[Rfam]
This 100-nucleotide sequence from Thomasclavelia spiroformis belongs to the Rfam family "TPP riboswitch aptamer (THI element)". Rfam describes the family as follows. Vitamin B(1) in its active form thiamin pyrophosphate (TPP) is an essential coenzyme that is synthesised by coupling of pyrimidine and thiazole moieties in bacteria. The base pairs follow the family's consensus structure, which is taken from published work.
RNA sequence: UAAAUGAGCCAGGGGCGCAUUUUGCUGAGAAAGGUUAUACCUUGUCCCUUAUUAUCUGAACUGGGUAAUGCCAGCGUAGAGAGAGCAAUUUUAAAAUUAU
Numbered sequence: 001u002a003a004a005u006g007a008g009c010c011a012g013g014g015g016c017g018c019a020u021u022u023u024g025c026u027g028a029g030a031a032a033g034g035u036u037a038u039a040c041c042u043u044g045u046c047c048c049u050u051a052u053u054a055u056c057u058g059a060a061c062u063g064g065g066u067a068a069u070g071c072c073a074g075c076g077u078a079g080a081g082a083g084a085g086c087a088a089u090u091u092u093a094a095a096a097u098u099a100u
Stems, first nucleotide, its partner, number of pairs: 008086002011049004017025003032042004055080004061074004